A member of the RNA family "Guanidine-I riboswitch aptamer" from Phormidium tenue, 142 nucleotides long. Taxonomically the source falls in Phormidium tenue (Bacteria, Bacillati, Cyanobacteriota, Cyanophyceae).

[Rfam]
RNA sequence: CCAAUCGGUUUCUAGGGUUCCGGCUUGCCGCAUCUGCGGUUAGGGCGUCUGGUCCGAGAGAAACCGCCAGAUAGUUACUGGCCCUGCUUUGAUAGCAGCGCUCACGGUAUCUGGUACACGGCGGGAUAAAAGCCCGGGAGGA
Numbered sequence: 001c002c003a004a005u006c007g008g009u010u011u012c013u014a015g016g017g018u019u020c021c022g023g024c025u026u027g028c029c030g031c032a033u034c035u036g037c038g039g040u041u042a043g044g045g046c047g048u049c050u051g052g053u054c055c056g057a058g059a060g061a062a063a064c065c066g067c068c069a070g071a072u073a074g075u076u077a078c079u080g081g082c083c084c085u086g087c088u089u090u091g092a093u094a095g096c097a098g099c100g101c102u103c104a105c106g107g108u109a110u111c112u113g114g115u116a117c118a119c120g121g122c123g124g125g126a127u128a129a130a131a132g133c134c135c136g137g138g139a140g141g142a
Stems, first nucleotide, its partner, number of pairs: 007065006015055002020052002022049001023046003066115008117137001119140001123135003